RNA sequence: CCCAGAGGUAUUGAUAGGUGGAAUCAACUUCGGUUGAUUAACACGAUUUACACCAACCUGCGUUUUACGCAGGUUUUUUUU
Numbered sequence: 001c002c003c004a005g006a007g008g009u010a011u012u013g014a015u016a017g018g019u020g021g022a023a024u025c026a027a028c029u030u031c032g033g034u035u036g037a038u039u040a041a042c043a044c045g046a047u048u049u050a051c052a053c054c055a056a057c058c059u060g061c062g063u064u065u066u067a068c069g070c071a072g073g074u075u076u077u078u079u080u081u
Base pairs, nucleotide, nucleotide: 017054018053019052020051021044023038024037025036026035027034028033056074057073058072059071060070061069062068063067
Rfam assigns this 81-nucleotide sequence to the family "OmrA-B family".
It is annotated as a small RNA.
The family's consensus secondary structure was predicted with WAR.